[Rfam]
RNA sequence: AUACUUACCUGGAUGGGAUCAAUGGGUGAUCAAAGAGGCCCAUGGUCUAGGUUGGUGACCUCCAUUGCACUUUGGAGGGGUGCCAGCCUAAGGUCGGCCCAAGUGGUCGAGCCUACAUCAUAAUUUGUGAUAGUGGGGGCUUGCGUUCGCGCAGCCCCUGC
Dot-bracket structure: ...........((((((((((.(((((..........)))))))))))(((.(.(((.(((((..........)).))).)))..)))).((((((.((.....)).))).))).))))..............(((((...((((....))))..))))).
The family of this 161-nucleotide RNA sequence from Centaurea solstitialis is "U1 spliceosomal RNA". Rfam classes the family as a spliceosomal small nuclear RNA. A search with the family's covariance model found it, with a score of 148 bits. The organism belongs to Centaurea, within Eukaryota. Rfam's curators write: U1 is a small nuclear RNA (snRNA) component of the spliceosome (involved in pre-mRNA splicing). Its 5' end forms complementary base pairs with the 5' splice junction, thus defining the 5' donor site of an intron.